Rfam assigns this 90-nucleotide RNA from Ameiurus melas to the family "mir-731 microRNA precursor family". The source organism's lineage runs through Eukaryota, Metazoa, Chordata, Otophysi and Ameiurus. Its family is annotated with RISC complex and miRNA-mediated post-transcriptional gene silencing in the Gene Ontology. Rfam 15.1 lists 91 matches to the family in 80 species.
RNA sequence: UGAUGUUGCUGCAGAAUGACACGUUUUCUCCCGGAUUGCCAGAUAUACAAACCGCCACCGGGAACUUCGUGUCAGCCAGCAGUGGCAUCC
Dot-bracket structure: .((((((((((.....(((((((.....((((((.(.((..(..........))).)))))))....))))))).....)))))))))).